[Rfam]
RNA sequence: AAAGGAAGAAAGGUAUAUGCGUAUUUCUUCGGAAAUAUGAGGAAAGUCUGGACAUCAUCCGAAAGGAGAAAAGCUAACGGCUUUGGUCCGAAAAAAUAUCAAAAAUUUCGGAUACGGAAAGUGCCACAGAGACAAUACUAGUCGCAAGACGAAAGGUGAAAAGUCAUUUUGUGUACUGAGGUUAACUCUCAAAAGAUUUUUUUGAAAAGAACCAAAAGUGCGAUAAAUGAGCCAUUGGCGGGUAAACCCUCUCUGAUGCAAGAGGAAUGGUAUUUUUGUGCAUAAUAUUUUCGGAAUAGUGAACAAAAAUAUACCUCGCUUGAGGUUUUGGGCGACCAAAAUCCUAGAUAGAUAUAUACCGAAAUACAGAAUCCGGCUUAUUAUCAACUUUUUGAA
Numbered sequence: 001a002a003a004g005g006a007a008g009a010a011a012g013g014u015a016u017a018u019g020c021g022u023a024u025u026u027c028u029u030c031g032g033a034a035a036u037a038u039g040a041g042g043a044a045a046g047u048c049u050g051g052a053c054a055u056c057a058u059c060c061g062a063a064a065g066g067a068g069a070a071a072a073g074c075u076a077a078c079g080g081c082u083u084u085g086g087u088c089c090g091a092a093a094a095a096a097u098a099u100c101a102a103a104a105a106u107u108u109c110g111g112a113u114a115c116g117g118a119a120a121g122u123g124c125c126a127c128a129g130a131g132a133c134a135a136u137a138c139u140a141g142u143c144g145c146a147a148g149a150c151g152a153a154a155g156g157u158g159a160a161a162a163g164u165c166a167u168u169u170u171g172u173g174u175a176c177u178g179a180g181g182u183u184a185a186c187u188c189u190c191a192a193a194a195g196a197u198u199u200u201u202u203u204g205a206a207a208a209g210a211a212c213c214a215a216a217a218g219u220g221c222g223a224u225a226a227a228u229g230a231g232c233c234a235u236u237g238g239c240g241g242g243u244a245a246a247c248c249c250u251c252u253c254u255g256a257u258g259c260a261a262g263a264g265g266a267a268u269g270g271u272a273u274u275u276u277u278g279u280g281c282a283u284a285a286u287a288u289u290u291u292c293g294g295a296a297u298a299g300u301g302a303a304c305a306a307a308a309a310u311a312u313a314c315c316u317c318g319c320u321u322g323a324g325g326u327u328u329u330g331g332g333c334g335a336c337c338a339a340a341a342u343c344c345u346a347g348a349u350a351g352a353u354a355u356a357u358a359c360c361g362a363a364a365u366a367c368a369g370a371a372u373c374c375g376g377c378u379u380a381u382u383a384u385c386a387a388c389u390u391u392u393u394g395a396a
Stems, first nucleotide, its partner, number of pairs: 001392005008385002011381001012360007020039008044379003048376005053258004060294001063291001065254005070084005085115001086113008116249002121247002123243003138155002141150003262317004274308006286298004324343008

Record summary
The family of this 396-nucleotide RNA sequence from Candidatus Gracilibacteria bacterium GN02-873 is "Bacterial RNase P class A". Lineage of the source: Bacteria > Bacteria candidate phyla > Candidatus Altimarinota. The match comes from Rfam's covariance-model search (159 bits). Rfam links the family to the GO terms tRNA processing, ribonuclease P activity and dimeric ribonuclease P complex.